A member of the RNA family "Bacterial RNase P class B" from Pseudolactococcus insecticola, 393 nucleotides long. Rfam describes the family as follows. Ribonuclease P (RNase P) is a ubiquitous endoribonuclease, found in archaea, bacteria and eukarya as well as chloroplasts and mitochondria. Its best characterised activity is the generation of mature 5'-ends of tRNAs by cleaving the 5'-leader elements of precursor-tRNAs. Lineage of the source: Bacteria > Bacillota > Lactobacillales > Streptococcaceae > Pseudolactococcus. The match comes from Rfam's covariance-model search (276 bits). The family's RNA type in Rfam is ribozyme. For this family Rfam cites "Ribonuclease P: unity and diversity in a tRNA processing ribozyme" (Frank and Pace, Annu Rev Biochem, 1998).

[Rfam]
RNA sequence: GUUUUUGGAUAAUUGCGCGAUUGUUUAACAGUCGUGAGGAAAGUCCAUGCUCGCGCAGGCUGCGAUGCCUGCAGUGUUUGUGCUAGGCGAAACCAUAAGCCUAGGUAGGCCCGUCAAGCCUAACGGCUGAAUUCAAGCUAAGUUUUCUUCGGAAGAUAGGCGGAAAAUUCUGUAAAAGUGCCAUAGAGACGAGUUGCUUUGGAAACUUAGCAAGUGGAACGUGGUAAACCCCUCAAGCGAGCAACCCAAACUUAUGGUAGGGGCACUUGUCACGCGGAACGUUAAAGAACGUACGACGAGGCUAGGUGAGAGAUUUUCUUAACUAGCAGACAGAUGAUUAUCGAAGGACUGCGUGUCUGACAUGCAGUCUGGAACAAAACAUGGCUUAUAGAA
Number, nucleotide and partner (000 for none) at each position: 001g000002u000003u000004u393005u392006u391007g389008g342009a341010u340011a339012a338013u337014u336015g000016c036017g035018c034019g033020a032021u031022u000023g000024u000025u000026u000027a000028a000029c000030a000031g021032u020033c019034g018035u017036g016037a000038g000039g000040a000041a387042a386043g385044u000045c384046c383047a382048u381049g380050c241051u240052c239053g238054c237055g072056c071057a070058g069059g068060c067061u000062g000063c000064g000065a000066u000067g060068c059069c058070u057071g056072c055073a000074g000075u000076g000077u000078u236079u235080g234081u000082g232083c104084u103085a102086g101087g100088c099089g000090a000091a000092a000093c000094c000095a000096u000097a000098a000099g088100c087101c086102u085103a084104g083105g124106u122107a121108g120109g119110c118111c000112c000113g000114u000115c000116a000117a000118g110119c109120c108121u107122a106123a000124c105125g231126g230127c000128u172129g170130a169131a000132u000133u000134c000135a000136a000137g161138c160139u000140a000141a000142g157143u156144u155145u154146u153147c152148u000149u000150c000151g000152g147153a146154a145155g144156a143157u142158a000159g000160g138161c137162g000163g000164a000165a000166a000167a000168u000169u130170c129171u000172g128173u000174a000175a000176a000177a000178g229179u228180g225181c224182c223183a000184u000185a000186g000187a000188g000189a000190c000191g000192a000193g000194u213195u212196g211197c210198u209199u000200u000201g206202g000203a000204a000205a000206c201207u000208u000209a198210g197211c196212a195213a194214g000215u000216g000217g000218a000219a000220c000221g000222u000223g182224g181225u180226a000227a000228a179229c178230c126231c125232c082233u000234c080235a079236a078237g054238c053239g052240a051241g050242c000243a000244a000245c262246c261247c260248a000249a000250a000251c000252u000253u000254a000255u000256g000257g000258u000259a000260g247261g246262g245263g000264c000265a000266c300267u299268u298269g297270u296271c295272a000273c000274g000275c000276g000277g000278a000279a000280c000281g000282u000283u000284a000285a000286a000287g000288a000289a000290c000291g000292u000293a000294c000295g271296a270297c269298g268299a267300g266301g327302c326303u325304a324305g323306g000307u000308g000309a000310g000311a000312g000313a000314u000315u000316u000317u000318c000319u000320u000321a000322a000323c305324u304325a303326g302327c301328a000329g000330a000331c000332a000333g000334a000335u000336g014337a013338u012339u011340a010341u009342c008343g000344a000345a000346g370347g369348a368349c367350u366351g365352c364353g363354u362355g361356u000357c000358u000359g000360a000361c355362a354363u353364g352365c351366a350367g349368u348369c347370u346371g000372g000373a000374a000375c000376a000377a000378a000379a000380c049381a048382u047383g046384g045385c043386u042387u041388a000389u007390a000391g006392a005393a004